Source information:
The family of this 101-nucleotide RNA from Gracilibacillus ureilyticus is "SAM riboswitch aptamer (S box leader)".
RNA sequence: UUCUUAUCGAGAGAGAUGGAGGGACUGGCCCGUUGAUAUCUCAGCAACAGGCAUCAUGCACUGUGCUAAUUCCAGCAAGUAAAUUACUUGGCAGAUAAGAA
Numbered sequence: 001u002u003c004u005u006a007u008c009g010a011g012a013g014a015g016a017u018g019g020a021g022g023g024a025c026u027g028g029c030c031c032g033u034u035g036a037u038a039u040c041u042c043a044g045c046a047a048c049a050g051g052c053a054u055c056a057u058g059c060a061c062u063g064u065g066c067u068a069a070u071u072c073c074a075g076c077a078a079g080u081a082a083a084u085u086a087c088u089u090g091g092c093a094g095a096u097a098a099g100a101a
Stems, first nucleotide, its partner, number of pairs: 001101008013042005021031003025075004043067004048063002051059003071093001076090006

Lineage of the source: Bacteria > Bacillati > Bacillota > Bacillaceae > Gracilibacillus. Rfam links the family to the GO term regulation of gene expression. Pairs were carried over by alignment from the consensus structure, which is taken from published work.